[Rfam]
RNA sequence: ACCAUAUUUGUGGGGGUCAUUGUAGAAGCGUGCUCGUCACGAUCCCUGCCAGCCCUUUUCAGGGCUGCAAUUCUACA
Numbered sequence: 001a002c003c004a005u006a007u008u009u010g011u012g013g014g015g016g017u018c019a020u021u022g023u024a025g026a027a028g029c030g031u032g033c034u035c036g037u038c039a040c041g042a043u044c045c046c047u048g049c050c051a052g053c054c055c056u057u058u059u060c061a062g063g064g065c066u067g068c069a070a071u072u073c074u075a076c077a
Base pairs, nucleotide, nucleotide: 013046014045015044016043017042018041021077022076023075024074025073026072027071028040030038050067051066052065053064054063055062056061
Description:
Rfam assigns this 77-nucleotide RNA sequence from Parnassius apollo to the family "Mammalian CPEB3 ribozyme". A search with the family's covariance model found it, with a score of 49 bits. NCBI's taxonomy places the organism under Eukaryota, Allotriocarida, Amphiesmenoptera, Obtectomera, Parnassius. Gene Ontology term of the family: RNA nuclease activity.